[Rfam]
RNA sequence: GUUAGAUUUCGGCAAACUUAUCGAAAGGUAAGGACGCAAAGCUAUGGGUCUAAGAAUCUUAGGAUUUAAGGCUGCCAGGUUGCCAUU
Numbered sequence: 001g002u003u004a005g006a007u008u009u010c011g012g013c014a015a016a017c018u019u020a021u022c023g024a025a026a027g028g029u030a031a032g033g034a035c036g037c038a039a040a041g042c043u044a045u046g047g048g049u050c051u052a053a054g055a056a057u058c059u060u061a062g063g064a065u066u067u068a069a070g071g072c073u074g075c076c077a078g079g080u081u082g083c084c085a086u087u
Stems, first nucleotide, its partner, number of pairs: 012037002017032006040081004045077003048072003055066004

Shown here is an 87-nucleotide RNA from Pelosinus sp. UFO1, a member of the family "c-di-GMP-I riboswitch aptamer".
Taxonomically the source falls in Pelosinus (Bacteria, Negativicutes, Selenomonadales, Sporomusaceae).
A search with the family's covariance model found it, with a score of 80 bits.